This 366-nucleotide sequence from Sapientia aquatica belongs to the Rfam family "Bacterial RNase P class A". Rfam classes the family as a ribozyme.

[Rfam]
RNA sequence: GAAGCAAGCCAGACAGUCGCUGGUUUUGUUGUAUUUGUCUAUACAAAUGCAGCAGGACGGGAGGAAGGUCCGGACUCCAUAGAGCAGGGUGACGGUUAACGACCGUCCGCCGAAAGUCGCAAGCGCAAGCCCAAGAUAUAAGGCGAGGAAUAGGGCCACAGAGACGAGCGUAUUUAGUUACGGUGAAACGCGGUAACCUCCACUCGGAGCAAUUUCAAAUAGGCACGCAUUGAUGCUGCUCGCGGAGCGUGCGGGUAGAAAGCUUGAGCCUUGGAGUAAUUCAAGGCCUAGAGGAAUGACUGUCAUAACCGGCUUUAGCAAUAGAGCCAGUCGUAACAGAAUCCGGCCUAUCGGCUUGCUUCACUU
Numbered sequence: 001g002a003a004g005c006a007a008g009c010c011a012g013a014c015a016g017u018c019g020c021u022g023g024u025u026u027u028g029u030u031g032u033a034u035u036u037g038u039c040u041a042u043a044c045a046a047a048u049g050c051a052g053c054a055g056g057a058c059g060g061g062a063g064g065a066a067g068g069u070c071c072g073g074a075c076u077c078c079a080u081a082g083a084g085c086a087g088g089g090u091g092a093c094g095g096u097u098a099a100c101g102a103c104c105g106u107c108c109g110c111c112g113a114a115a116g117u118c119g120c121a122a123g124c125g126c127a128a129g130c131c132c133a134a135g136a137u138a139u140a141a142g143g144c145g146a147g148g149a150a151u152a153g154g155g156c157c158a159c160a161g162a163g164a165c166g167a168g169c170g171u172a173u174u175u176a177g178u179u180a181c182g183g184u185g186a187a188a189c190g191c192g193g194u195a196a197c198c199u200c201c202a203c204u205c206g207g208a209g210c211a212a213u214u215u216c217a218a219a220u221a222g223g224c225a226c227g228c229a230u231u232g233a234u235g236c237u238g239c240u241c242g243c244g245g246a247g248c249g250u251g252c253g254g255g256u257a258g259a260a261a262g263c264u265u266g267a268g269c270c271u272u273g274g275a276g277u278a279a280u281u282c283a284a285g286g287c288c289u290a291g292a293g294g295a296a297u298g299a300c301u302g303u304c305a306u307a308a309c310c311g312g313c314u315u316u317a318g319c320a321a322u323a324g325a326g327c328c329a330g331u332c333g334u335a336a337c338a339g340a341a342u343c344c345g346g347c348c349u350a351u352c353g354g355c356u357u358g359c360u361u362c363a364c365u366u
Base pairs, nucleotide, nucleotide: 001362002361003360004359005358006357007356008355009354010353011351012304013303014302015301016300017299018298020061021060023058024057025056026055027054028053029052030051031050032049033048034047035046036045037044066349067348068347070346071345072344073343074342075209076208077207078206082241083240084239085238087205088204089203090202091201092106093105094104095103096102107147108145109144110143111142148200149199153198154197155194156193157192169182170181171180172179213261214260215259216258223252224251225250226249227248228247234244235243236242268287269286270285271284272283273282274281275280
It scores 223 bits against the family's covariance model. The source organism's lineage runs through Bacteria, Pseudomonadota, Burkholderiales, Oxalobacteraceae and Sapientia.